[Rfam]
Shown here is a 295-nucleotide RNA from Porphyridium purpureum, a member of the family "Metazoan signal recognition particle RNA". The base pairs follow the family's consensus structure, which is taken from published work. Lineage of the source: Eukaryota > Rhodophyta > Bangiophyceae > Porphyridiales > Porphyridium. By type it is a non-coding RNA gene. It scores 106 bits against the family's covariance model.
RNA sequence: UUCGGUAGGGGUAGCGCCUGACUGUGGCCCGAGCGGGGAACUGGCAGGGUUGGGGAUUGGCCUAAUCAAGGAUCGAGCCUGCGAGCAGCGCGACGACAGGCCGUCCCUGUUGAGCUGAGCGUUCCGGAGCGGCGUUGUGGCGGAGGCCGCAAUGUCGCUCCGCGAUAAGUAGCGGUGUAAUGGGGGAGGCGAGAAAUCGAGCACUCUUAACUGCAGCGUUUGGCGGCGGAGGGAUCGCGGCUUUGAGCGUUCUUCAGGGUCCACUCGAUAUUUGGCUUCGUCGAAACCUUUCCUU
Number, nucleotide and partner (000 for none) at each position: 001u040002u039003c038004g023005g022006u021007a000008g019009g018010g017011g000012u000013a000014g000015c000016g000017c010018c009019u008020g000021a006022c005023u004024g000025u000026g000027g000028c037029c036030c035031g000032a000033g000034c000035g030036g029037g028038g003039a002040a001041c000042u000043g293044g292045c000046a290047g289048g288049g287050u286051u285052g000053g000054g000055g000056a000057u000058u000059g277060g276061c275062c274063u000064a000065a269066u268067c267068a000069a265070g264071g000072a000073u263074c000075g261076a260077g000078c258079c257080u000081g000082c000083g254084a253085g252086c000087a251088g250089c249090g248091c247092g000093a000094c000095g000096a000097c000098a243099g242100g241101c240102c239103g238104u237105c233106c232107c000108u231109g000110u229111u228112g227113a000114g224115c223116u222117g221118a220119g219120c218121g217122u216123u000124c000125c162126g161127g160128a159129g158130c157131g156132g155133c154134g153135u152136u151137g150138u149139g148140g147141c146142g000143g000144a000145g000146g141147c140148c139149g138150c137151a136152a135153u134154g133155u132156c131157g130158c129159u128160c127161c126162g125163c000164g170165a000166u000167a000168a000169g000170u164171a000172g214173c213174g212175g211176u210177g000178u000179a000180a000181u000182g000183g206184g205185g204186g000187a000188g000189g000190c199191g198192a197193g000194a000195a000196a000197u192198c191199g190200a000201g000202c000203a000204c185205u184206c183207u000208u000209a000210a176211c175212u174213g173214c172215a000216g122217c121218g120219u119220u118221u117222g116223g115224c114225g000226g000227c112228g111229g110230a000231g108232g106233g105234a000235u000236c000237g104238c103239g102240g101241c100242u099243u098244u000245g000246a000247g091248c090249g089250u088251u087252c085253u084254u083255c000256a000257g079258g078259g000260u076261c075262c000263a073264c070265u069266c000267g067268a066269u065270a000271u000272u000273u000274g062275g061276c060277u059278u000279c000280g000281u000282c000283g000284a000285a051286a050287c049288c048289u047290u046291u000292c044293c043294u000295u000